[Rfam]
Rfam assigns this 60-nucleotide RNA sequence from Diceros bicornis to the family "Selenocysteine insertion sequence 1". NCBI's taxonomy places the organism under Eukaryota, Teleostomi, Amniota, Mammalia, Diceros bicornis. Rfam's curators write: The incorporation of selenocysteine into a protein sequence is directed by an in-frame UGA codon (usually a stop codon) within the coding region of the mRNA. Selenoprotein mRNAs contain a conserved secondary structure in the 3' UTR that is required for the distinction of UGA stop from UGA selenocysteine. The base pairs follow the family's consensus structure, which is taken from published work. The family's RNA type in Rfam is cis-regulatory element.
RNA sequence: GCUGCCCCAUGAUGGCUGGAUCUGAAAUCCUGGAUGGAUCCAGCUUGAUGUCUUUGCAGU
Numbered sequence: 001g002c003u004g005c006c007c008c009a010u011g012a013u014g015g016c017u018g019g020a021u022c023u024g025a026a027a028u029c030c031u032g033g034a035u036g037g038a039u040c041c042a043g044c045u046u047g048a049u050g051u052c053u054u055u056g057c058a059g060u
Base pairs, nucleotide, nucleotide: 001060002059003058004057005056014045015044016043017042018041019040020039021038022037023036